[Rfam]
RNA sequence: GCGCUGGUUUAGCUCAGUGGUUACUUCAAUUGAAAUCCUGUUUCAUGGUCCGCGGGCCAGAAGUACCAACCACGGGCGCUGUCCAGCGCUUUU
Numbered sequence: 001g002c003g004c005u006g007g008u009u010u011a012g013c014u015c016a017g018u019g020g021u022u023a024c025u026u027c028a029a030u031u032g033a034a035a036u037c038c039u040g041u042u043u044c045a046u047g048g049u050c051c052g053c054g055g056g057c058c059a060g061a062a063g064u065a066c067c068a069a070c071c072a073c074g075g076g077c078g079c080u081g082u083c084c085a086g087c088g089c090u091u092u093u
Base pairs, nucleotide, nucleotide: 002088003087004086005085006084007083012077013076014075015074017073018072019071020070025062026061027060